RNA sequence: UUUCUUCUUUACAAACCAGCUUUCUAUUCACUGCACCUUCCCUUCAAUGGAGGAGUGGAGGGGAAAAGGAAGCAAGAUUAACAUCAGAAGAUCACUAAAACUGAGACUUGUGCUGAUACUCAAAGCAGGAUUCGGUCUUUAUGUCUUUUGAGAUAUCA
Number, nucleotide and partner (000 for none) at each position: 001u000002u000003u000004c000005u000006u000007c000008u000009u000010u000011a000012c000013a000014a000015a000016c000017c000018a000019g073020c072021u000022u070023u069024c000025u000026a000027u000028u000029c000030a000031c060032u059033g000034c057035a056036c000037c053038u052039u051040c050041c049042c000043u000044u000045c000046a000047a000048u000049g041050g040051a039052g038053g037054a000055g000056u035057g034058g000059a032060g031061g000062g000063g000064a000065a000066a000067a000068g000069g023070a022071a000072g020073c019074a000075a000076g000077a000078u000079u000080a000081a000082c000083a000084u000085c150086a149087g148088a000089a000090g145091a144092u143093c000094a000095c000096u000097a000098a000099a000100a000101c135102u134103g133104a000105g131106a000107c129108u128109u127110g126111u125112g000113c000114u000115g000116a000117u000118a000119c000120u000121c000122a000123a000124a000125g111126c110127a109128g108129g107130a000131u105132u000133c103134g102135g101136u000137c000138u000139u000140u000141a000142u000143g092144u091145c090146u000147u000148u087149u086150g085151a000152g000153a000154u000155a000156u000157c000158a000
Small nucleolar RNA snR8: a 158-nucleotide RNA sequence from Komagataella phaffii. Its family is annotated with RNA processing and nucleolus in the Gene Ontology.